[Rfam]
Metazoan signal recognition particle RNA: a 300-nucleotide sequence from Microcaecilia unicolor. Rfam classes the family as a non-coding RNA gene. Gene Ontology terms of the family: SRP-dependent cotranslational protein targeting to membrane, signal sequence recognition and signal recognition particle, endoplasmic reticulum targeting. The family's consensus secondary structure is taken from published work. A search with the family's covariance model found it, with a score of 276 bits.
RNA sequence: GCCGGGCGCGGUGGCGCGUGCCUGUAAUCCCAGCUACUGGGGAGGCUGAGACUGGCGGAUCGCUUGAGUCCAGGAGUUCUGGACUGCAGUGUGCUAUGCCGAUCGGGUGUCCGUACUAAGGUGGGCAUCAAUAUGGUGAUCCCGAGGGAGCUCAGGAUCACCAGGUUGUCUAAGGAGGGGUGAACCGGCCCAGGUCGGAAACGGAGCAGGUCAAAACCCCCAUGCCGAUCAGUAGUAGGAUCGCGCCUGUGAAUAGCCACUGUAGGACAGCCUGGGCAAGACAGUGAGACACAGUUUCUU
Numbered sequence: 001g002c003c004g005g006g007c008g009c010g011g012u013g014g015c016g017c018g019u020g021c022c023u024g025u026a027a028u029c030c031c032a033g034c035u036a037c038u039g040g041g042g043a044g045g046c047u048g049a050g051a052c053u054g055g056c057g058g059a060u061c062g063c064u065u066g067a068g069u070c071c072a073g074g075a076g077u078u079c080u081g082g083a084c085u086g087c088a089g090u091g092u093g094c095u096a097u098g099c100c101g102a103u104c105g106g107g108u109g110u111c112c113g114u115a116c117u118a119a120g121g122u123g124g125g126c127a128u129c130a131a132u133a134u135g136g137u138g139a140u141c142c143c144g145a146g147g148g149a150g151c152u153c154a155g156g157a158u159c160a161c162c163a164g165g166u167u168g169u170c171u172a173a174g175g176a177g178g179g180g181u182g183a184a185c186c187g188g189c190c191c192a193g194g195u196c197g198g199a200a201a202c203g204g205a206g207c208a209g210g211u212c213a214a215a216a217c218c219c220c221c222a223u224g225c226c227g228a229u230c231a232g233u234a235g236u237a238g239g240a241u242c243g244c245g246c247c248u249g250u251g252a253a254u255a256g257c258c259a260c261u262g263u264a265g266g267a268c269a270g271c272c273u274g275g276g277c278a279a280g281a282c283a284g285u286g287a288g289a290c291a292c293a294g295u296u297u298c299u300u
Stems, first nucleotide, its partner, number of pairs: 001046003004023007028043003048298007060287005068277007079270003084265008093257005099251001104249007111239002114237005120230003124226005129168004134163009144153003169175002177220005187212004195204003